[Rfam]
Notes:
c-di-GMP-I riboswitch aptamer: a 90-nucleotide sequence from Paenibacillus popilliae. The base pairs follow the family's consensus structure, which is taken from published work. NCBI's taxonomy places the organism under Bacteria, Bacilli, Caryophanales, Paenibacillus, Paenibacillus popilliae. It scores 55 bits against the family's covariance model.
RNA sequence: UAGUAAUAAAAGCAAACCUAUCGAAGGAUGGGGACACAAGGCUACAGGGGUUUCAGCGAAUGAGACUCGCUAUGCCAGCCAGCUACCAAG
Numbered sequence: 001u002a003g004u005a006a007u008a009a010a011a012g013c014a015a016a017c018c019u020a021u022c023g024a025a026g027g028a029u030g031g032g033g034a035c036a037c038a039a040g041g042c043u044a045c046a047g048g049g050g051u052u053u054c055a056g057c058g059a060a061u062g063a064g065a066c067u068c069g070c071u072a073u074g075c076c077a078g079c080c081a082g083c084u085a086c087c088a089a090g
Stems, first nucleotide, its partner, number of pairs: 012037001017032006040084004047080002049076003056070004
Dot-bracket structure: ...........(....((((((....))))))....)..((((...(((((....((((.......))))...)))..))))))......